RNA sequence: GAUCAUUGCGAUUAAGGUUUCAAUGACAGACUUAUCCAAACAAAAUAAAGGAUUCAAGCGAACCUAAUUCUCUCACCCUUGAGGUGUAAACACAUUAACAAGG
Numbered sequence: 001g002a003u004c005a006u007u008g009c010g011a012u013u014a015a016g017g018u019u020u021c022a023a024u025g026a027c028a029g030a031c032u033u034a035u036c037c038a039a040a041c042a043a044a045a046u047a048a049a050g051g052a053u054u055c056a057a058g059c060g061a062a063c064c065u066a067a068u069u070c071u072c073u074c075a076c077c078c079u080u081g082a083g084g085u086g087u088a089a090a091c092a093c094a095u096u097a098a099c100a101a102g103g
Base pairs, nucleotide, nucleotide: 003026004025005024006023007022008021010019011018012017074086075085076084077083
RNA: RT-9 RNA